[Rfam]
RNA: Fluoride riboswitch aptamer (crcB RNA motif)
RNA sequence: UAAUAAUUAGGUGAUGAAGUUCGCCUUUAAAUAUCCUUUGGGAUUGAUGGCUUCUACUAUAUG
Numbered sequence: 001u002a003a004u005a006a007u008u009a010g011g012u013g014a015u016g017a018a019g020u021u022c023g024c025c026u027u028u029a030a031a032u033a034u035c036c037u038u039u040g041g042g043a044u045u046g047a048u049g050g051c052u053u054c055u056a057c058u059a060u061a062u063g
Stems, first nucleotide, its partner, number of pairs: 010025004016054006033044004